[Rfam]
RNA: mir-2060 microRNA precursor family
Organism: Branchiostoma lanceolatum
RNA sequence: GUUUAUUUGUGUGUGGAUGGUUUUCAGCACCAGGGACAGGUGUGUUUACCUGCGUGCGGAUGGUGUUUAGCAGCAGGGGCGGGUAUUUUUACCU
Numbered sequence: 001g002u003u004u005a006u007u008u009g010u011g012u013g014u015g016g017a018u019g020g021u022u023u024u025c026a027g028c029a030c031c032a033g034g035g036a037c038a039g040g041u042g043u044g045u046u047u048a049c050c051u052g053c054g055u056g057c058g059g060a061u062g063g064u065g066u067u068u069a070g071c072a073g074c075a076g077g078g079g080c081g082g083g084u085a086u087u088u089u090u091a092c093c094u
Stems, first nucleotide, its partner, number of pairs: 004085007018075002021072001023070002026067007034055001037052006